[Rfam]
RNA sequence: GAAAUGGGAGUUCCUUGCAGCCCAAAGCUUCAAGGAUGAAAUUCUUCCUGCGGUUUUGGACUGAAGGGAGCUCCUACUU
Numbered sequence: 001g002a003a004a005u006g007g008g009a010g011u012u013c014c015u016u017g018c019a020g021c022c023c024a025a026a027g028c029u030u031c032a033a034g035g036a037u038g039a040a041a042u043u044c045u046u047c048c049u050g051c052g053g054u055u056u057u058g059g060a061c062u063g064a065a066g067g068g069a070g071c072u073c074c075u076a077c078u079u
Base pairs, nucleotide, nucleotide: 005076006075007074008073009072010071011070012069013068014067015066016065019062020061022059023058024057025056026055027054028053029052
The record is a 79-nucleotide sequence from Glycine max, which matches "MIR319 microRNA precursor family" in Rfam. It is one of the family's seed sequences. NCBI's taxonomy places the organism under Eukaryota, Tracheophyta, Magnoliopsida, Mesangiospermae, Glycine subgen. Soja.